[Rfam]
RNA sequence: GGGUGUCACCGCAAAACGUGGGGGCAGGUUUAAUUCAGCGCAGGUCGGGCCGCCGCG
Numbered sequence: 001g002g003g004u005g006u007c008a009c010c011g012c013a014a015a016a017c018g019u020g021g022g023g024g025c026a027g028g029u030u031u032a033a034u035u036c037a038g039c040g041c042a043g044g045u046c047g048g049g050c051c052g053c054c055g056c057g
Stems, first nucleotide, its partner, number of pairs: 005025003009021004039057003043054003
RNA: nhaA-I RNA
Organism: Azomonas macrocytogenes